Background: The record is an 82-nucleotide sequence from Tepidimonas taiwanensis, which matches "SucA RNA motif" in Rfam. Rfam links the family to the GO term regulation of translation. The source organism's lineage runs through Bacteria, Pseudomonadota, Betaproteobacteria, Burkholderiales and Tepidimonas. It is annotated as a cis-regulatory element. Pairs were carried over by alignment from the consensus structure, which is taken from published work.
RNA sequence: UCGCGUCCGCUAACCGGUUCAGCCGUGUCGCGGAAGGUUUUUCCAACCCGCUAGUCUCCCCGGAGGGAGACGGAGGUCAGCG
Numbered sequence: 001u002c003g004c005g006u007c008c009g010c011u012a013a014c015c016g017g018u019u020c021a022g023c024c025g026u027g028u029c030g031c032g033g034a035a036g037g038u039u040u041u042u043c044c045a046a047c048c049c050g051c052u053a054g055u056c057u058c059c060c061c062g063g064a065g066g067g068a069g070a071c072g073g074a075g076g077u078c079a080g081c082g
Base pairs, nucleotide, nucleotide: 002082003081004080006034007033008032009031010030015025016024017023018022036048037047038046039045050077051076052075054071055070056069057068058067059066060065
Dot-bracket structure: .(((.(((((....((((...))))....))))).((((.....)))).(((.(((((((....)))))))...)))..)))